[Rfam]
RNA: Small nucleolar RNA SNORD73
RNA sequence: AAUGAAUGAUGACCGCAGUUUUGGUCCCAAAUGAUGUUCCAUGCUUAUAUUCAUUUACUGACAUU
Number, nucleotide and partner (000 for none) at each position: 001a065002a064003u063004g062005a000006a000007u000008g000009a000010u000011g000012a000013c000014c000015g000016c000017a000018g000019u000020u000021u000022u000023g000024g000025u000026c000027c000028c000029a000030a000031a000032u000033g000034a000035u000036g000037u000038u000039c000040c000041a000042u000043g000044c000045u000046u000047a000048u000049a000050u000051u000052c000053a000054u000055u000056u000057a000058c000059u000060g000061a000062c004063a003064u002065u001